A member of the RNA family "Bacterial RNase P class A" from Leifsonia sp. Root60, 375 nucleotides long.
Nucleotides: 375
Base pairs, nucleotide, nucleotide: 001371002370003369004368005367006366007365008364009363012316013315014314015313016312017311018310020042021041023039024038025037026036027035028034047358048357049356051355052354053353054352055351056222057221058220059219063253064252065251066250068218069217070216071215072214073087074086075085076084077083088102089100090099091098092097103213104212108211109210110207111206112205125152126151127148128147129146131144132143133142134141135140160178161177162176163175164174165173180202181200182199183198184197185196186195187194188193226273227272228271229270235264236263237262238261239260240259244258245257246256247255248254280299281298282297283296284295285294286293287292
Number, partner (000 for none) and nucleotide at each position: 001371u002370g003369g004368g005367u006366c007365g008364g009363c010000a011000a012316g013315a014314c015313g016312a017311c018310c019000g020042c021041g022000u023039c024038a025037u026036c027035c028034g029000c030000a031000g032000u033000g034028c035027g036026g037025a038024u039023g040000c041021c042020g043000a044000g045000g046000a047358a048357c049356g050000u051355c052354c053353g054352g055351g056222c057221u058220c059219c060000g061000c062000a063253g064252a065251g066250c067000a068218g069217g070216g071215c072214g073087g074086u075085g076084g077083g078000u079000a080000a081000c082000a083077c084076c085075c086074a087073c088102c089100c090099g091098g092097g093000g094000u095000g096000a097092c098091c099090c100089g101000c102088g103213a104212g105000a106000c107000a108211g109210u110207g111206c112205c113000a114000c115000a116000g117000a118000g119000a120000a121000c122000a123000g124000a125152c126151c127148g128147c129146c130000a131144c132143g133142g134141g135140c136000u137000u138000c139000g140135g141134c142133c143132c144131g145000g146129g147128g148127u149000a150000a151126g152125g153000g154000u155000g156000a157000a158000a159000c160178g161177g162176u163175g164174g165173g166000g167000u168000a169000a170000g171000a172000g173165c174164c175163c176162a177161c178160c179000a180202g181200c182199g183198g184197c185196c186195g187194u188193g189000g190000u191000g192000a193188c194187g195186c196185g197184g198183u199182c200181g201000g202180c203000u204000c205112g206111g207110u208000a209000a210109a211108c212104c213103u214072c215071g216070c217069c218068c219059g220058g221057a222056g223000c224000a225000a226273g227272g228271u229270c230000a231000g232000a233000c234000a235264g236263g237262g238261a239260a240259c241000g242000a243000u244258g245257g246256g247255g248254c249000u250066g251065c252064u253063c254248g255247u256246c257245c258244c259240g260239u261238u262237c263236c264235c265000g266000g267000g268000u269000a270229g271228g272227c273226c274000g275000c276000u277000g278000g279000a280299g281298g282297g283296c284295u285294g286293c287292g288000g289000c290000a291000a292287c293286g294285u295284a296283g297282u298281c299280c300000c301000g302000a303000g304000a305000g306000a307000g308000a309000u310018g311017g312016u313015c314014g315013u316012c317000c318000a319000g320000c321000c322000g323000g324000a325000g326000u327000c328000g329000c330000g331000c332000a333000a334000g335000c336000g337000c338000c339000c340000g341000g342000u343000g344000a345000a346000c347000a348000g349000a350000a351055c352054c353053c354052g355051g356049c357048g358047u359000a360000c361000u362000a363009g364008c365007c366006g367005g368004c369003c370002c371001a372000c373000u374000c375000a
Annotation: Rfam classes the family as a ribozyme.